About this RNA
A member of the RNA family "Plastid-ccsA-ndhD-2 3UTR RNA", 59 nucleotides long. Rfam classes the family as a cis-regulatory element. From the family's description: Plastid ccsA-ndhD-2 is a non-coding RNA (ncRNA) recognised in plastids. It was found in the three prime untranslated region (3UTR) of ccsA and ndhD genes, its 3UTR location suggests a role in transcript maturation.
[Rfam]
RNA sequence: GCCUUUGUGAGAACCAUUUGAAUCAUUACACUACUUGAUUCAAAUGGUUCUCGACAGUU
Number, nucleotide and partner (000 for none) at each position: 001g000002c000003c000004u000005u000006u000007g000008u053009g052010a051011g050012a049013a048014c047015c046016a045017u044018u043019u042020g041021a040022a039023u038024c037025a036026u000027u000028a000029c000030a000031c000032u000033a000034c000035u000036u025037g024038a023039u022040u021041c020042a019043a018044a017045u016046g015047g014048u013049u012050c011051u010052c009053g008054a000055c000056a000057g000058u000059u000